[Rfam]
RNA sequence: GGGGCUGAAUGGGGUACUGGUGUCCUCCACGGUCUUCAAAACCGUACGCGGCUAGCGUGCCUAGCUGGGUGAGUUCGAUUCUCACACAGUCCC
Numbered sequence: 001g002g003g004g005c006u007g008a009a010u011g012g013g014g015u016a017c018u019g020g021u022g023u024c025c026u027c028c029a030c031g032g033u034c035u036u037c038a039a040a041a042c043c044g045u046a047c048g049c050g051g052c053u054a055g056c057g058u059g060c061c062u063a064g065c066u067g068g069g070u071g072a073g074u075u076c077g078a079u080u081c082u083c084a085c086a087c088a089g090u091c092c093c
Base pairs, nucleotide, nucleotide: 001093002092003091004090005089006088007087012027013026014025016023017022029045030044031043032042033041049067050066051065052064053063070084071083072082073081

Shown here is a 93-nucleotide RNA sequence from Bacillus sp. 1NLA3E, a member of the family "Selenocysteine transfer RNA". Taxonomically the source falls in Bacillus (Bacteria, Bacillati, Bacilli, Caryophanales). Rfam links the family to the GO term triplet codon-amino acid adaptor activity.